[Rfam]
The record is an 84-nucleotide sequence from Desulfotruncus arcticus, which matches "c-di-GMP-I riboswitch aptamer" in Rfam. GEMM was predicted in a large-scale screen for bacterial structured RNA regulatory elements. Genes associated with GEMM are involved in a diverse array of functions, including chemotaxis regulation, signal transduction, secretion and chitin. A search with the family's covariance model found it, with a score of 68 bits.
RNA sequence: AACAAUAUUGGGCAAACCGACCGAAAGGCAGGGACGCAAAGCCAUGGGUCUAAGGCAUUUAGCUAAGAUUGCCAGGCUGCAAAC
Numbered sequence: 001a002a003c004a005a006u007a008u009u010g011g012g013c014a015a016a017c018c019g020a021c022c023g024a025a026a027g028g029c030a031g032g033g034a035c036g037c038a039a040a041g042c043c044a045u046g047g048g049u050c051u052a053a054g055g056c057a058u059u060u061a062g063c064u065a066a067g068a069u070u071g072c073c074a075g076g077c078u079g080c081a082a083a084c
Stems, first nucleotide, its partner, number of pairs: 012037002017032002021028002040078004045074003048069003055063002